Rfam assigns this 74-nucleotide sequence from Alligator mississippiensis to the family "Mammalian CPEB3 ribozyme". The family's consensus secondary structure is taken from published work. Rfam's curators write: The mammalian CPEB3 ribozyme is a self cleaving RNA located in the second intron of the CPEB3 gene which belongs to a family of genes regulating messenger RNA polyadenylation.

RNA sequence: ACAGCAAGUUGUGCCCAUAGCAGAAGCGUUCGCUGUGUGGCCUGUCAGAUUUCAACAAAUCUGCGAAUUCUGCU
Numbered sequence: 001a002c003a004g005c006a007a008g009u010u011g012u013g014c015c016c017a018u019a020g021c022a023g024a025a026g027c028g029u030u031c032g033c034u035g036u037g038u039g040g041c042c043u044g045u046c047a048g049a050u051u052u053c054a055a056c057a058a059a060u061c062u063g064c065g066a067a068u069u070c071u072g073c074u
Stems, first nucleotide, its partner, number of pairs: 015040002019074007026038003046063007